[Rfam]
A member of the RNA family "TPP riboswitch aptamer (THI element)" from Aquibium oceanicum, 122 nucleotides long. NCBI's taxonomy places the organism under Bacteria, Pseudomonadati, Alphaproteobacteria, Hyphomicrobiales, Aquibium. Rfam links the family to the GO term thiamine pyrophosphate binding.

RNA sequence: CUCGCUCUAACGGGGUGCCGGAGGUCCUUGGACUUUCCGGCUGAGAGGCGAAGGGUUUUCCCUGCCAACCCGCUGAACCUGAUCCGGUUUGUACCGGCGGAGGGAUUAGACGCUCGCAAAUG
Numbered sequence: 001c002u003c004g005c006u007c008u009a010a011c012g013g014g015g016u017g018c019c020g021g022a023g024g025u026c027c028u029u030g031g032a033c034u035u036u037c038c039g040g041c042u043g044a045g046a047g048g049c050g051a052a053g054g055g056u057u058u059u060c061c062c063u064g065c066c067a068a069c070c071c072g073c074u075g076a077a078c079c080u081g082a083u084c085c086g087g088u089u090u091g092u093a094c095c096g097g098c099g100g101a102g103g104g105a106u107u108a109g110a111c112g113c114u115c116g117c118a119a120a121u122g
Stems, first nucleotide, its partner, number of pairs: 006110005011072004017041008048065003078103003084097004